[Rfam]
RNA sequence: GAGUAAUAUUCGCCCCGAUUUUAUUACUUAGGAGCAACACACUUUGGACAGUCACAGUCGAUACCGACUUUAUAUUUUCAUUUAGUGUCGCCUUUCCCUUUCUUGGGGCUUAUCGGCGACAAGGUCG
Numbered sequence: 001g002a003g004u005a006a007u008a009u010u011c012g013c014c015c016c017g018a019u020u021u022u023a024u025u026a027c028u029u030a031g032g033a034g035c036a037a038c039a040c041a042c043u044u045u046g047g048a049c050a051g052u053c054a055c056a057g058u059c060g061a062u063a064c065c066g067a068c069u070u071u072a073u074a075u076u077u078u079c080a081u082u083u084a085g086u087g088u089c090g091c092c093u094u095u096c097c098c099u100u101u102c103u104u105g106g107g108g109c110u111u112a113u114c115g116g117c118g119a120c121a122a123g124g125u126c127g
Stems, first nucleotide, its partner, number of pairs: 001013001003011001005010001026082001031078004036073001044067004051062003083124001086121007

The family of this 127-nucleotide RNA from Lonepinella koalarum is "Aggregatibacter sRNA 54". Validated by RT-PCR, expression up-regulated during growth. The match comes from Rfam's covariance-model search (62 bits). Pairs were carried over by alignment from the consensus structure, which was predicted with RNAfold. By type it is a small RNA. The literature on the family includes a 2017 paper in DNA Res by Oogai et al., "Small RNA repertoires and their intraspecies variation in Aggregatibacter actinomycetemcomitans".